[Rfam]
RNA sequence: ACACGUGAAAGGAGGUGGUCCGAAGAAUGAAUUCUUUUGGGACUCGUGAGGUGGCGGCCAGCUAGUCGCUGACCCGGUCCUUCUGGACUGUCGGUCGACGACCGGCUAAUCCAAAGGCCGACACCCGGACCCGCGAGCGCCAGGGCUUGUCCUCCUGGCCGUCGAUCAGCCGACGCACUGAGAUCGGUCGACGACGCCCGCUCGCGGGUUCGCCCUUU
Numbered sequence: 001a002c003a004c005g006u007g008a009a010a011g012g013a014g015g016u017g018g019u020c021c022g023a024a025g026a027a028u029g030a031a032u033u034c035u036u037u038u039g040g041g042a043c044u045c046g047u048g049a050g051g052u053g054g055c056g057g058c059c060a061g062c063u064a065g066u067c068g069c070u071g072a073c074c075c076g077g078u079c080c081u082u083c084u085g086g087a088c089u090g091u092c093g094g095u096c097g098a099c100g101a102c103c104g105g106c107u108a109a110u111c112c113a114a115a116g117g118c119c120g121a122c123a124c125c126c127g128g129a130c131c132c133g134c135g136a137g138c139g140c141c142a143g144g145g146c147u148u149g150u151c152c153u154c155c156u157g158g159c160c161g162u163c164g165a166u167c168a169g170c171c172g173a174c175g176c177a178c179u180g181a182g183a184u185c186g187g188u189c190g191a192c193g194a195c196g197c198c199c200g201c202u203c204g205c206g207g208g209u210u211c212g213c214c215c216u217u218u
Stems, first nucleotide, its partner, number of pairs: 014059003018055002060107004065102002068099001070097005126212002129209011141158001143156003
This 218-nucleotide RNA sequence from Microlunatus parietis belongs to the Rfam family "Actinobacteria sRNA Ms_IGR-5". It is annotated as a small RNA. The base pairs follow the family's consensus structure.